[Rfam]
RNA sequence: AAUAUCCUUCAGGGCAGGGUGAAAUUCCCGACCGGCGGUAAAGUCCGCGAACCACACGGUGGUUGACUUGGUGAAAUUCCAAGACCGACAGUAUAGUCUGGAUGGAAGAAGGAAGAA
Numbered sequence: 001a002a003u004a005u006c007c008u009u010c011a012g013g014g015c016a017g018g019g020u021g022a023a024a025u026u027c028c029c030g031a032c033c034g035g036c037g038g039u040a041a042a043g044u045c046c047g048c049g050a051a052c053c054a055c056a057c058g059g060u061g062g063u064u065g066a067c068u069u070g071g072u073g074a075a076a077u078u079c080c081a082a083g084a085c086c087g088a089c090a091g092u093a094u095a096g097u098c099u100g101g102a103u104g105g106a107a108g109a110a111g112g113a114a115g116a117a
Base pairs, nucleotide, nucleotide: 003115005113006112007111008110009109010108017029018028019027031097032096033087034086035048036047037046038045043085044084051063052062053061067083068082069081070080071079089100090099091098
Notes: The family of this 117-nucleotide RNA from Garciella nitratireducens is "FMN riboswitch aptamer (RFN element)". The RFN element is a highly conserved domain that is found frequently in the 5'-untranslated regions of prokaryotic mRNAs that encode for flavin mononucleotide (FMN) biosynthesis and transport proteins. Gene Ontology term of the family: FMN binding. The source organism's lineage runs through Bacteria, Bacillota, Clostridia, Garciella and Garciella nitratireducens. The match comes from Rfam's covariance-model search (126 bits).